[Rfam]
RNA sequence: AUGCCCCUACUCUGUUGGUGAUCUGCGGAGUAUUGAGCCAACUCUCGUAAAAAGGGCAGUCUUCAGGUUGAUCUAUGGAAAUCUGUUUAGAUUUCCAGCAGUCAACCAAGACCUUGCCCACCUAAUUUAAUUAGGUUUAAUCAUUUCGCAGACACGGCAGCGUGGGGGCUUU
Number, nucleotide and partner (000 for none) at each position: 001a000002u000003g169004c168005c167006c166007c165008u164009a163010c162011u000012c160013u159014g158015u157016u000017g000018g155019u154020g000021a000022u000023c000024u000025g000026c000027g000028g000029a000030g000031u000032a000033u000034u139035g138036a137037g136038c135039c134040a000041a000042c000043u000044c000045u000046c000047g000048u000049a000050a000051a000052a000053a000054g119055g118056g117057c000058a114059g113060u000061c000062u110063u109064c000065a000066g107067g106068u105069u104070g103071a102072u101073c000074u000075a000076u000077g095078g094079a000080a000081a000082u091083c090084u000085g000086u000087u000088u000089a000090g083091a082092u000093u000094u078095c077096c000097a000098g000099c000100a000101g072102u071103c070104a069105a068106c067107c066108a000109a063110g062111a000112c000113c059114u058115u000116g000117c056118c055119c054120a000121c000122c000123u000124a000125a000126u000127u000128u000129a000130a000131u000132u000133a000134g039135g038136u037137u036138u035139a034140a000141u000142c000143a000144u000145u000146u000147c000148g000149c000150a000151g000152a000153c000154a019155c018156g000157g015158c014159a013160g012161c000162g010163u009164g008165g007166g006167g005168g004169c003170u000171u000172u000
Background:
Shown here is a 172-nucleotide RNA from Desulfobulbus oligotrophicus, a member of the family "6S / SsrS RNA". Rfam classes the family as a non-coding RNA gene. E. coli 6S RNA was the first non coding RNA to be sequenced, but its function was unknown until recently. It consists of 184 nucleotides that fold into an extended hairpin structure with a large single-stranded internal bulge. The 6S RNA specifically associates with RNA polymerase holoenzyme containing the sigma70 specificity factor.